[Rfam]
RNA sequence: CUCCCCGAAAUAUAUUUAAGUAUAGCCUCACGUGUUGGAUGGCGGUGGUAGAGCACUGGUUGGGCUAGGGGUCUUAACCGGCUACCAAACCCAUCUAAACUCCGAAUGCCGCUAUUCCUAGCGUGGGAGUCAGCUUGUGGGUGAUAAAGUCCACAGACGAGAGGGAAACAACCCAGACCGCCAGCUAAGGUCCCUAAGUGUGUGCUAAGUGGGGAAGGAUGUGGAACUGCUAAGACAGCCAGGAGGUUGGCUUAGAAGCAGCCAUCCUUUAAAGAAAGCGUAACAGCUCACUGGUCGAGUGGUUCUGCGCCGAAAAUAUAACGGGGCUUAAGCACACCACCGAAGCUGCGGGUUCAGAGGAAGUGUUACUUUCUCUGAGCGGUAGGGGAGCGUUCCAGUGGCCUGUGAAGCCUGACCGAAAGGACAGGUGGAGGUGCUGGAAGUGAUAAU
Numbered sequence: 001c002u003c004c005c006c007g008a009a010a011u012a013u014a015u016u017u018a019a020g021u022a023u024a025g026c027c028u029c030a031c032g033u034g035u036u037g038g039a040u041g042g043c044g045g046u047g048g049u050a051g052a053g054c055a056c057u058g059g060u061u062g063g064g065c066u067a068g069g070g071g072u073c074u075u076a077a078c079c080g081g082c083u084a085c086c087a088a089a090c091c092c093a094u095c096u097a098a099a100c101u102c103c104g105a106a107u108g109c110c111g112c113u114a115u116u117c118c119u120a121g122c123g124u125g126g127g128a129g130u131c132a133g134c135u136u137g138u139g140g141g142u143g144a145u146a147a148a149g150u151c152c153a154c155a156g157a158c159g160a161g162a163g164g165g166a167a168a169c170a171a172c173c174c175a176g177a178c179c180g181c182c183a184g185c186u187a188a189g190g191u192c193c194c195u196a197a198g199u200g201u202g203u204g205c206u207a208a209g210u211g212g213g214g215a216a217g218g219a220u221g222u223g224g225a226a227c228u229g230c231u232a233a234g235a236c237a238g239c240c241a242g243g244a245g246g247u248u249g250g251c252u253u254a255g256a257a258g259c260a261g262c263c264a265u266c267c268u269u270u271a272a273a274g275a276a277a278g279c280g281u282a283a284c285a286g287c288u289c290a291c292u293g294g295u296c297g298a299g300u301g302g303u304u305c306u307g308c309g310c311c312g313a314a315a316a317u318a319u320a321a322c323g324g325g326g327c328u329u330a331a332g333c334a335c336a337c338c339a340c341c342g343a344a345g346c347u348g349c350g351g352g353u354u355c356a357g358a359g360g361a362a363g364u365g366u367u368a369c370u371u372u373c374u375c376u377g378a379g380c381g382g383u384a385g386g387g388g389a390g391c392g393u394u395c396c397a398g399u400g401g402c403c404u405g406u407g408a409a410g411c412c413u414g415a416c417c418g419a420a421a422g423g424a425c426a427g428g429u430g431g432a433g434g435u436g437c438u439g440g441a442a443g444u445g446a447u448a449a450u
Stems, first nucleotide, its partner, number of pairs: 001390006011024005026129001027127007036120001037117010051103001052101002057097003061093004068086002070083004133158001135156008163174003178351004183347003189341003198338001200337006217311002221308010238295005244268003249263003269273001274289001278287002352380012391445001393442007401435003410429005416423002
RNA: Bacterial large subunit ribosomal RNA, nucleotides 911 to 1360